Shown here is a 47-nucleotide RNA from Nicotiana sylvestris, a member of the family "Plastid-rpl16 group II-D1 intron".
Its family is annotated with Group II intron splicing in the Gene Ontology.
Lineage of the source: Eukaryota > Streptophytina > Embryophyta > Pentapetalae > Nicotiana.
Rfam describes the family as follows. Plastid-rpl16 is a non-coding RNA (ncRNA) recognised in plastids. It was recognised in and intronic region of a ribosome rpl16 gene.
The base pairs follow the family's consensus structure, which was predicted with LocARNA.
RNA sequence: AAGAGCUUCGAGCCAAUAAGGAUUGAGAAAAUUGACUCAAGAACCGA
Numbered sequence: 001a002a003g004a005g006c007u008u009c010g011a012g013c014c015a016a017u018a019a020g021g022a023u024u025g026a027g028a029a030a031a032u033u034g035a036c037u038c039a040a041g042a043a044c045c046g047a
Base pairs, nucleotide, nucleotide: 007041008040010038011037012036014034015033016032017031